[Rfam]
RNA sequence: CAUGGAGAAAGCUGACCUGGCUGGUAAAGCUGGUAAAGAGAAGCCAGCUUGUUUACAUGCUCAUUCUAGG
Numbered sequence: 001c002a003u004g005g006a007g008a009a010a011g012c013u014g015a016c017c018u019g020g021c022u023g024g025u026a027a028a029g030c031u032g033g034u035a036a037a038g039a040g041a042a043g044c045c046a047g048c049u050u051g052u053u054u055a056c057a058u059g060c061u062c063a064u065u066c067u068a069g070g
Base pairs, nucleotide, nucleotide: 001070003068004067005066006065007064010061011060012059014053015052016051019049020048021047022046023045024044025043